[Rfam]
RNA sequence: ACUGCUGAGCCAUCUCUCCAGCCCCAAAUUCCAUAUUUUUAAAGAAAAGAGAGAGAGAGAGAGGCUGGAGAGAUGGCUCAGCAGU
Numbered sequence: 001a002c003u004g005c006u007g008a009g010c011c012a013u014c015u016c017u018c019c020a021g022c023c024c025c026a027a028a029u030u031c032c033a034u035a036u037u038u039u040u041a042a043a044g045a046a047a048a049g050a051g052a053g054a055g056a057g058a059g060a061g062a063g064g065c066u067g068g069a070g071a072g073a074u075g076g077c078u079c080a081g082c083a084g085u
Stems, first nucleotide, its partner, number of pairs: 002084022
The record is an 85-nucleotide RNA from Jaculus jaculus, which matches "mir-3473 microRNA precursor family" in Rfam. Rfam links the family to the GO terms miRNA-mediated post-transcriptional gene silencing, cellular response to mechanical stimulus and RISC complex. Rfam 15.1 lists 1,094 matches to the family in 20 species. The organism belongs to Jaculus, within Eukaryota. It scores 73 bits against the family's covariance model.